[Rfam]
RNA sequence: GGCUGCCCCGCGGCAGUUCUUCAGUGGCACCGCUUUACGUCCCCCUAGAAGCUAAAGCUGCCAGUUGAAGAACUGUCGCCCGGAGC
Numbered sequence: 001g002g003c004u005g006c007c008c009c010g011c012g013g014c015a016g017u018u019c020u021u022c023a024g025u026g027g028c029a030c031c032g033c034u035u036u037a038c039g040u041c042c043c044c045c046u047a048g049a050a051g052c053u054a055a056a057g058c059u060g061c062c063a064g065u066u067g068a069a070g071a072a073c074u075g076u077c078g079c080c081c082g083g084a085g086c
Stems, first nucleotide, its partner, number of pairs: 006082001010079003017072006026062003032058006